RNA sequence: CCAAUGCCGACUGGAGAGACGCCGCAUCGACGUGGCGCACCGAAGGAGCAAGUCCGCUGCAUGCCGCAGCCGAUGAAUCUCUCAGGUAAAGGAGACAGAGGGAGCGGC
Dot-bracket structure: ......((..(((......((((..........)))).(((((..(((...((...................))....))))).)))........)))..))......
Numbered sequence: 001c002c003a004a005u006g007c008c009g010a011c012u013g014g015a016g017a018g019a020c021g022c023c024g025c026a027u028c029g030a031c032g033u034g035g036c037g038c039a040c041c042g043a044a045g046g047a048g049c050a051a052g053u054c055c056g057c058u059g060c061a062u063g064c065c066g067c068a069g070c071c072g073a074u075g076a077a078u079c080u081c082u083c084a085g086g087u088a089a090a091g092g093a094g095a096c097a098g099a100g101g102g103a104g105c106g107g108c
Stems, first nucleotide, its partner, number of pairs: 007102002011098003020037004039087003042083002046081003052074002
Notes: This 108-nucleotide RNA sequence from Variovorax sp. Sphag1AA belongs to the Rfam family "Glycine riboswitch aptamer". From the family's description: This family represents the bacterial glycine riboswitch.